[Rfam]
RNA sequence: UUUCCAGCCAGGCUCCUGUCUAAAGUCCAGCUUUUAGCUGGACUUAGGCUAAGCCUGGCUGUUAA
Numbered sequence: 001u002u003u004c005c006a007g008c009c010a011g012g013c014u015c016c017u018g019u020c021u022a023a024a025g026u027c028c029a030g031c032u033u034u035u036a037g038c039u040g041g042a043c044u045u046a047g048g049c050u051a052a053g054c055c056u057g058g059c060u061g062u063u064a065a
Stems, first nucleotide, its partner, number of pairs: 007059003011055004018049006027041005
mir-344 microRNA precursor family: a 65-nucleotide RNA sequence from Cricetulus griseus. The family has 18 seed sequences and 339 matches in Rfam 15.1. The organism belongs to Cricetulus, within Eukaryota. Its family is annotated with miRNA-mediated post-transcriptional gene silencing and RISC complex in the Gene Ontology. For this family Rfam cites "Mammalian microRNAs: experimental evaluation of novel and previously annotated genes" (Chiang et al., Genes Dev, 2010). The base pairs follow the family's consensus structure, which was predicted with RNAalifold.